[Rfam]
RNA sequence: CAAUACGUGGUUCGUAACCAUCCCACGUUAAAAAAACUAGGAGGAA
Numbered sequence: 001c002a003a004u005a006c007g008u009g010g011u012u013c014g015u016a017a018c019c020a021u022c023c024c025a026c027g028u029u030a031a032a033a034a035a036a037c038u039a040g041g042a043g044g045a046a
Stems, first nucleotide, its partner, number of pairs: 006027005015039002
RNA: PreQ1 (pre queuosine) riboswitch aptamer
Organism: Lactiplantibacillus plantarum